The family of this 78-nucleotide sequence from Platysternon megacephalum is "Mammalian CPEB3 ribozyme". The family's consensus secondary structure is taken from published work.
[Rfam]
RNA sequence: AGACUGUAUUACGGGGCCAUAGAAGGAGCUUUUAUGUCUCAGGCCCUGUCAGAUUCUUAGGAAUCUGCAAAUUCUGCA
Numbered sequence: 001a002g003a004c005u006g007u008a009u010u011a012c013g014g015g016g017c018c019a020u021a022g023a024a025g026g027a028g029c030u031u032u033u034a035u036g037u038c039u040c041a042g043g044c045c046c047u048g049u050c051a052g053a054u055u056c057u058u059a060g061g062a063a064u065c066u067g068c069a070a071a072u073u074c075u076g077c078a
Base pairs, nucleotide, nucleotide: 013046014045015044017042022077024075025074026073027072028040050067051066052065053064054063055062056061